[Rfam]
Nucleotides: 115
Stems, first nucleotide, its partner, number of pairs: 006052007015043002017103005028039004094108003
Number, partner (000 for none) and nucleotide at each position: 001000c002000c003000c004000g005000u006052g007051g008050g009049c010048c011047g012046u013000g014000a015043c016042u017103g018102g019101c020100g021099c022000g023000u024000u025000c026000g027000g028039a029038u030037g031036g032000a033000u034000g035000a036031c037030c038029a039028u040000c041000g042016g043015g044000g045000a046012g047011c048010g049009g050008c051007c052006u053000c054000a055000c056000c057000c058000a059000a060000g061000u062000a063000g064000u065000g066000g067000g068000u069000g070000a071000c072000u073000c074000a075000c076000c077000c078000a079000a080000g081000u082000a083000g084000u085000g086000g087000g088000u089000g090000a091000a092000c093000u094108g095107c096106c097000g098000u099021g100020c101019g102018c103017c104000u105000g106096g107095g108094c109000c110000u111000c112000u113000u114000c115000a
This 115-nucleotide sequence from Winogradskya consettensis belongs to the Rfam family "ZMP/ZTP riboswitch aptamer (pfl RNA motif)". The family's consensus secondary structure is taken from published work.